L31-Firmicutes ribosomal protein leader: a 32-nucleotide sequence. The sequence is in the family's curated seed alignment. It is annotated as a cis-regulatory leader. The literature on the family includes a 2020 paper in BMC Microbiol by Eckert and Weinberg, "Discovery of 20 novel ribosomal leader candidates in bacteria and archaea".

RNA sequence: CUCUGUAUCGCUUUGAUUCAGGGCAGAAAGAG
Numbered sequence: 001c002u003c004u005g006u007a008u009c010g011c012u013u014u015g016a017u018u019c020a021g022g023g024c025a026g027a028a029a030g031a032g
Base pairs, nucleotide, nucleotide: 001023002022003021004020005019007017008016009015